[Rfam]
RNA sequence: ACAUCGCUCACGGCCUUUUGGCUAUGAUCAUUGUUUAGUUUCUGUUCUUAUAGUUUUAACCAACUAUAUGUGGCACAUGUGCCCGAUUUUGGUUAUUAAUUUUUGGAGAUCCGGAAAUGAGCUGCAGCUUGCUGCGCCAUUUCCACGGGUCGCCCCGGUAUUGCACGAUAUCGCCGGGUGUGGCCCACAUCCC
Numbered sequence: 001a002c003a004u005c006g007c008u009c010a011c012g013g014c015c016u017u018u019u020g021g022c023u024a025u026g027a028u029c030a031u032u033g034u035u036u037a038g039u040u041u042c043u044g045u046u047c048u049u050a051u052a053g054u055u056u057u058a059a060c061c062a063a064c065u066a067u068a069u070g071u072g073g074c075a076c077a078u079g080u081g082c083c084c085g086a087u088u089u090u091g092g093u094u095a096u097u098a099a100u101u102u103u104u105g106g107a108g109a110u111c112c113g114g115a116a117a118u119g120a121g122c123u124g125c126a127g128c129u130u131g132c133u134g135c136g137c138c139a140u141u142u143c144c145a146c147g148g149g150u151c152g153c154c155c156c157g158g159u160a161u162u163g164c165a166c167g168a169u170a171u172c173g174c175c176g177g178g179u180g181u182g183g184c185c186c187a188c189a190u191c192c193c
Stems, first nucleotide, its partner, number of pairs: 008027003012023004049068006072083004113144007124135004147186006154178006
RNA: U2 spliceosomal RNA
Organism: Panagrellus redivivus